[Rfam]
RNA sequence: UAAGUAAGUCAGAUAAUCGCAGGUAGCAUUAGCUACGUGAGGAAAGUCGGAGCUCCAUAGAGCAGGGUGCUAGGUAACGCCUAGUGGGAGUGAUCCUAAGGAAAGUGCAACAGAAAAUUACCGCCAAGAAUUUUCUUGGUAAGGAUGAAAAGGCGAGGUAAGAGCUCACCGUUUCUCAGGUGACUGAGAAAGCCGUGUAAACCCCACCUGGAGCAAGACCAAAAUAGGGCUAAAAGAGUGUUGCUCGCACUCUCCGGUAGGUAGGUCGCUUGAGCAUAUUGGUGACAAUAUGCCUAGAUAGAUGAUUAUCAAAUACAGAACUCCGCUUAUAGAUUUGCUUGAUUA
Numbered sequence: 001u002a003a004g005u006a007a008g009u010c011a012g013a014u015a016a017u018c019g020c021a022g023g024u025a026g027c028a029u030u031a032g033c034u035a036c037g038u039g040a041g042g043a044a045a046g047u048c049g050g051a052g053c054u055c056c057a058u059a060g061a062g063c064a065g066g067g068u069g070c071u072a073g074g075u076a077a078c079g080c081c082u083a084g085u086g087g088g089a090g091u092g093a094u095c096c097u098a099a100g101g102a103a104a105g106u107g108c109a110a111c112a113g114a115a116a117a118u119u120a121c122c123g124c125c126a127a128g129a130a131u132u133u134u135c136u137u138g139g140u141a142a143g144g145a146u147g148a149a150a151a152g153g154c155g156a157g158g159u160a161a162g163a164g165c166u167c168a169c170c171g172u173u174u175c176u177c178a179g180g181u182g183a184c185u186g187a188g189a190a191a192g193c194c195g196u197g198u199a200a201a202c203c204c205c206a207c208c209u210g211g212a213g214c215a216a217g218a219c220c221a222a223a224a225u226a227g228g229g230c231u232a233a234a235a236g237a238g239u240g241u242u243g244c245u246c247g248c249a250c251u252c253u254c255c256g257g258u259a260g261g262u263a264g265g266u267c268g269c270u271u272g273a274g275c276a277u278a279u280u281g282g283u284g285a286c287a288a289u290a291u292g293c294c295u296a297g298a299u300a301g302a303u304g305a306u307u308a309u310c311a312a313a314u315a316c317a318g319a320a321c322u323c324c325g326c327u328u329a330u331a332g333a334u335u336u337g338c339u340u341g342a343u344u345a
Stems, first nucleotide, its partner, number of pairs: 001341010011330001012310007020039002023036005044328003048325005053213004060246004065209005070084005085099001086097004100204002105202002107198003121144002123140007152170002155167003171193001172191008217267004225257001227255003237251005274293008
RNA: Bacterial RNase P class A
Organism: Terrisporobacter othiniensis